[Rfam]
RNA: Bacterial RNase P class A
RNA sequence: CCUGCAAAAUGUUCUAUCGCUGUCUGCGCAAGCGGAGAGAGGAAAGUCCGGGCAACAUAGGGCAUCCUGCUUCCUAACGGGAAGGCGCCAUGGCAUGGCGACAGAAAGUGCCACAGAAAAUAUACCGCCCGUUGUGGGUAAGGGUGAAAACGCGAGGUAAGAGCUCACGGCUUUUCCGGGUGACCGGAAUCGCGGUAAACCUCAGGAGUUGAAAAACCAAAUAGGUCCCGUGCAUGAAGCGGCCCGCUUCAGAUGGCCGCAAGGCUGUCAACGGGAUGGGUAGGUUGCUUGAGCUGCAGAGCAAUUUGCAGCCCAGAUAAAUGAUAGAAACCGCCGCAUGGCGGAUACAGAACCCGGCUUACAGCUUUGCUGCCAUA
Numbered sequence: 001c002c003u004g005c006a007a008a009a010u011g012u013u014c015u016a017u018c019g020c021u022g023u024c025u026g027c028g029c030a031a032g033c034g035g036a037g038a039g040a041g042g043a044a045a046g047u048c049c050g051g052g053c054a055a056c057a058u059a060g061g062g063c064a065u066c067c068u069g070c071u072u073c074c075u076a077a078c079g080g081g082a083a084g085g086c087g088c089c090a091u092g093g094c095a096u097g098g099c100g101a102c103a104g105a106a107a108g109u110g111c112c113a114c115a116g117a118a119a120a121u122a123u124a125c126c127g128c129c130c131g132u133u134g135u136g137g138g139u140a141a142g143g144g145u146g147a148a149a150a151c152g153c154g155a156g157g158u159a160a161g162a163g164c165u166c167a168c169g170g171c172u173u174u175u176c177c178g179g180g181u182g183a184c185c186g187g188a189a190u191c192g193c194g195g196u197a198a199a200c201c202u203c204a205g206g207a208g209u210u211g212a213a214a215a216a217c218c219a220a221a222u223a224g225g226u227c228c229c230g231u232g233c234a235u236g237a238a239g240c241g242g243c244c245c246g247c248u249u250c251a252g253a254u255g256g257c258c259g260c261a262a263g264g265c266u267g268u269c270a271a272c273g274g275g276a277u278g279g280g281u282a283g284g285u286u287g288c289u290u291g292a293g294c295u296g297c298a299g300a301g302c303a304a305u306u307u308g309c310a311g312c313c314c315a316g317a318u319a320a321a322u323g324a325u326a327g328a329a330a331c332c333g334c335c336g337c338a339u340g341g342c343g344g345a346u347a348c349a350g351a352a353c354c355c356g357g358c359u360u361a362c363a364g365c366u367u368u369g370c371u372g373c374c375a376u377a
Stems, first nucleotide, its partner, number of pairs: 002372001004370005010364001011362001012329007020039002023036005044360003048357005053211004065207005070084005085102001086100004103202002108200002110196003125143002127139005151169002154166003174189006215286004225277006254267005293312008